[Rfam]
RNA sequence: GGAUUCCCACCGAGAAAGAACUAGCCAUUCACUCGUAGCGAGUCUUGAAGGACAAGGGGUAACUCUUGUCUUUAAGCGUAGACAGUUAGGUGAUGGGCCGAAAGCCAAAUGGUUGAAGGGAUUGAGCUCCGAAAUACCCAGUUAAGAGGGCCGAUGUAUUUGACAGUAUAGAAAGCAACAUUCCUAUUUUCGUAAGGGCGAGAAAGCAGGAACCUCUUCGGAGUCGAUGACCU
Numbered sequence: 001g002g003a004u005u006c007c008c009a010c011c012g013a014g015a016a017a018g019a020a021c022u023a024g025c026c027a028u029u030c031a032c033u034c035g036u037a038g039c040g041a042g043u044c045u046u047g048a049a050g051g052a053c054a055a056g057g058g059g060u061a062a063c064u065c066u067u068g069u070c071u072u073u074a075a076g077c078g079u080a081g082a083c084a085g086u087u088a089g090g091u092g093a094u095g096g097g098c099c100g101a102a103a104g105c106c107a108a109a110u111g112g113u114u115g116a117a118g119g120g121a122u123u124g125a126g127c128u129c130c131g132a133a134a135u136a137c138c139c140a141g142u143u144a145a146g147a148g149g150g151c152c153g154a155u156g157u158a159u160u161u162g163a164c165a166g167u168a169u170a171g172a173a174a175g176c177a178a179c180a181u182u183c184c185u186a187u188u189u190u191c192g193u194a195a196g197g198g199c200g201a202g203a204a205a206g207c208a209g210g211a212a213c214c215u216c217u218u219c220g221g222a223g224u225c226g227a228u229g230a231c232c233u
Base pairs, nucleotide, nucleotide: 011035012034013033014032018030019029020028022201024199025198038086039085042083043082044081045080046078047077048073049072050071051070052069053068054067055066056065057064058063123227124225126224127223128222129221130220131219144218145217146216147215148214149213150176151175155170156169157168158167181212182211183210184209185208187206188205189204190203191202
The record is a 233-nucleotide RNA sequence from Peribacillus cavernae, which matches "Group II catalytic intron D1-D4-6" in Rfam. It scores 161 bits against the family's covariance model. Rfam describes the family as follows. Group II introns are found in rRNA, tRNA and mRNA of organelles in fungi, plants and protists, and also in mRNA in bacteria.